Source information
This 116-nucleotide RNA from Amycolatopsis antarctica belongs to the Rfam family "SAM (S-adenosyl methionine) riboswitch aptamer".
[Rfam]
RNA sequence: GGUCAUGAGCGCCAGCGUCAAGCCCCGGCUCGCUGGCCGGCAACCCUCCUUCCGCGGUGGGGUGCCCCGGGUGAGGACCUGGCCCGUCGCGAUCCCGCGGUGGGCAAGCGCGGACU
Numbered sequence: 001g002g003u004c005a006u007g008a009g010c011g012c013c014a015g016c017g018u019c020a021a022g023c024c025c026c027g028g029c030u031c032g033c034u035g036g037c038c039g040g041c042a043a044c045c046c047u048c049c050u051u052c053c054g055c056g057g058u059g060g061g062g063u064g065c066c067c068c069g070g071g072u073g074a075g076g077a078c079c080u081g082g083c084c085c086g087u088c089g090c091g092a093u094c095c096c097g098c099g100g101u102g103g104g105c106a107a108g109c110g111c112g113g114a115c116u
Base pairs, nucleotide, nucleotide: 001079002078003077004076009038011037012036013035014034015033016032021030022029039066040065041064044062045061046060048057049056082105083104084103085102086101087100088099089098090097091096

Pairs were carried over by alignment from the consensus structure, which is taken from published work. It scores 119 bits against the family's covariance model. NCBI's taxonomy places the organism under Bacteria, Actinomycetota, Actinomycetes, Pseudonocardiaceae, Amycolatopsis. SAM-IV is a mRNA element that regulates gene expression via direct sensing of S-adenosylmethionine (SAM or AdoMet). SAM-IV riboswitches share conserved nucleotide positions with the previously described SAM-I riboswitches sequence analysis and molecular recognition experiments suggest that SAM-I and SAM-IV riboswitches share similar ligand binding sites, but have different scaffolds.